The family of this 119-nucleotide sequence from Paenibacillus solani is "Bacillus sRNA ncr1015".
The base pairs follow the family's consensus structure, which is taken from published work.
A search with the family's covariance model found it, with a score of 69 bits.
RNA sequence: AUAUAAGAUGAAAUUCUCAUGUCUAAAUGUAAGAUACGAUUUGCUUUCUGAUUGUAUCAUUGACUCUGUACAUAAGCAAUAACAAAGAAUCUGAUGAUUUUGCACAGGUUCUUUUUUUG
Numbered sequence: 001a002u003a004u005a006a007g008a009u010g011a012a013a014u015u016c017u018c019a020u021g022u023c024u025a026a027a028u029g030u031a032a033g034a035u036a037c038g039a040u041u042u043g044c045u046u047u048c049u050g051a052u053u054g055u056a057u058c059a060u061u062g063a064c065u066c067u068g069u070a071c072a073u074a075a076g077c078a079a080u081a082a083c084a085a086a087g088a089a090u091c092u093g094a095u096g097a098u099u100u101u102g103c104a105c106a107g108g109u110u111c112u113u114u115u116u117u118u119g
Stems, first nucleotide, its partner, number of pairs: 032073001035070003039065001041063003084114010